[Rfam]
RNA sequence: AAUAGAUUUAUACCGCAUCAGCAUUGUUAUCCUGAAUUUCAACAUUUUUAUCCUGAAAAAAUCAAAUCCAAAUUAAAAUCCUAAAAUUCAAGAUGAAAAUGCUAAUGUGUCAUAAAUCUAUU
Numbered sequence: 001a002a003u004a005g006a007u008u009u010a011u012a013c014c015g016c017a018u019c020a021g022c023a024u025u026g027u028u029a030u031c032c033u034g035a036a037u038u039u040c041a042a043c044a045u046u047u048u049u050a051u052c053c054u055g056a057a058a059a060a061a062u063c064a065a066a067u068c069c070a071a072a073u074u075a076a077a078a079u080c081c082u083a084a085a086a087u088u089c090a091a092g093a094u095g096a097a098a099a100u101g102c103u104a105a106u107g108u109g110u111c112a113u114a115a116a117u118c119u120a121u122u
Base pairs, nucleotide, nucleotide: 001122002121003120004119005118006117007116008115009114010113011112014109015108016107017106018105020103021102022101023100024099025098027096029094030093031092033090034089035088036087037086038085039084041082045078046077047076048075